[Rfam]
RNA sequence: UCUGUCUGAGGUGGUGGAUUUCGUAGCAACCACACGCCAUAUUGGCCAAAAGAGACGCAGGAGAAUGCUACGCCUGCCGGGCAGG
Numbered sequence: 001u002c003u004g005u006c007u008g009a010g011g012u013g014g015u016g017g018a019u020u021u022c023g024u025a026g027c028a029a030c031c032a033c034a035c036g037c038c039a040u041a042u043u044g045g046c047c048a049a050a051a052g053a054g055a056c057g058c059a060g061g062a063g064a065a066u067g068c069u070a071c072g073c074c075u076g077c078c079g080g081g082c083a084g085g
Base pairs, nucleotide, nucleotide: 001085002084003083004082005081006080007079008078011033012032013031014030015029023071024070025069026068027067035052036046037045038044057077058076059075060074061073
Annotation: Shown here is an 85-nucleotide RNA sequence, a member of the family "skipping-rope RNA".